The family of this 73-nucleotide RNA sequence from Alligator mississippiensis is "Mammalian CPEB3 ribozyme". A search with the family's covariance model found it, with a score of 36 bits. Lineage of the source: Eukaryota > Euteleostomi > Tetrapoda > Archelosauria > Alligator.
[Rfam]
RNA sequence: CAAGUUUGAGGCCACAGCAGAAGUGCUCAUGGUACAGAUCUGUCAGAUUUCAAUGAAAUCUGUGAGUUCUGUG
Number, nucleotide and partner (000 for none) at each position: 001c000002a000003a000004g000005u000006u000007u000008g040009a039010g000011g000012c037013c000014a000015c000016a000017g072018c071019a070020g069021a068022a067023g035024u034025g033026c000027u000028c000029a000030u000031g000032g000033u025034a024035c023036a000037g012038a000039u009040c008041u000042g000043u000044c062045a061046g060047a059048u058049u057050u056051c000052a000053a000054u000055g000056a050057a049058a048059u047060c046061u045062g044063u000064g000065a000066g000067u022068u021069c020070u019071g018072u017073g000